[Rfam]
RNA sequence: GCGAGAACCGUGUGAAUCAAGUAGUGUAGUGAUUCACGCGGUUCUCGC
Numbered sequence: 001g002c003g004a005g006a007a008c009c010g011u012g013u014g015a016a017u018c019a020a021g022u023a024g025u026g027u028a029g030u031g032a033u034u035c036a037c038g039c040g041g042u043u044c045u046c047g048c
Base pairs, nucleotide, nucleotide: 001048002047003046004045005044006043007042008041009040010039011038012037013036014035015034016033017032018031019030

Source information: Rfam assigns this 48-nucleotide RNA from Westoniella kohkemperi to the family "Plastid-ccsA-ndhD-2 3UTR RNA". Rfam's curators write: Plastid ccsA-ndhD-2 is a non-coding RNA (ncRNA) recognised in plastids. It was found in the three prime untranslated region (3UTR) of ccsA and ndhD genes, its 3UTR location suggests a role in transcript maturation. NCBI's taxonomy places the organism under Eukaryota, Streptophyta, Tracheophyta, Asterales, Westoniella. The base pairs follow the family's consensus structure, which was predicted with LocARNA.